[Rfam]
RNA: FMN riboswitch aptamer (RFN element)
RNA sequence: AUUUUUCUUCGGGGUCGGGUGGAAGUCCCAAUCGGCGGUGAUGUAGGUAAUCUAAUAAGCCCGCGAGCCUUUAUGGCAGGAGCUGGUGAGAAUCCAGCGCCGACAGUGAAAGUCUGGAUGGGAGAAGAAAAAU
Numbered sequence: 001a002u003u004u005u006u007c008u009u010c011g012g013g014g015u016c017g018g019g020u021g022g023a024a025g026u027c028c029c030a031a032u033c034g035g036c037g038g039u040g041a042u043g044u045a046g047g048u049a050a051u052c053u054a055a056u057a058a059g060c061c062c063g064c065g066a067g068c069c070u071u072u073a074u075g076g077c078a079g080g081a082g083c084u085g086g087u088g089a090g091a092a093u094c095c096a097g098c099g100c101c102g103a104c105a106g107u108g109a110a111a112g113u114c115u116g117g118a119u120g121g122g123a124g125a126a127g128a129a130a131a132a133u
Stems, first nucleotide, its partner, number of pairs: 003131008017029003031113002033102002035064004059100002069076001082098005104116003